[Rfam]
RNA sequence: GCGGCGGGCCGUGACUGGCGCAUCGAGGUGGAGCCGACCACCGGGGAGCGGCCCUGCACACCCCCGCCGGGCGCCUGGGCACACACU
Numbered sequence: 001g002c003g004g005c006g007g008g009c010c011g012u013g014a015c016u017g018g019c020g021c022a023u024c025g026a027g028g029u030g031g032a033g034c035c036g037a038c039c040a041c042c043g044g045g046g047a048g049c050g051g052c053c054c055u056g057c058a059c060a061c062c063c064c065c066g067c068c069g070g071g072c073g074c075c076u077g078g079g080c081a082c083a084c085a086c087u
Stems, first nucleotide, its partner, number of pairs: 003057001006054007015045002017075005028041004066080003